This 68-nucleotide sequence from Diplocarpon coronariae belongs to the Rfam family "bZIP non canonical Hac1/Xbp1 intron". bZIP intron RNA is a non-canonical intron that was first reported in HAC1 gene in yeast and XBP1 gene in Metazoa. For this family Rfam cites "Identification of an Exceptionally Long Intron in the HAC1 Gene of Candida parapsilosis" (Iracane et al., mSphere, 2018). The family has 112 seed sequences and 1,325 matches in Rfam 15.1. It scores 49 bits against the family's covariance model. The source organism's lineage runs through Eukaryota, Ascomycota, saccharomyceta, Drepanopezizaceae and Diplocarpon. It is annotated as a small RNA.
RNA sequence: GACUCCUCCAACUUGACACAACAUCCUGCCGCGGUGUUGUGCGACCUGCCGUGUCAGUCGGAGGAGUC
Numbered sequence: 001g002a003c004u005c006c007u008c009c010a011a012c013u014u015g016a017c018a019c020a021a022c023a024u025c026c027u028g029c030c031g032c033g034g035u036g037u038u039g040u041g042c043g044a045c046c047u048g049c050c051g052u053g054u055c056a057g058u059c060g061g062a063g064g065a066g067u068c
Base pairs, nucleotide, nucleotide: 001068002067003066004065005064006063007062009060011058012057013056020038021037022036023035024034025033043055044054045053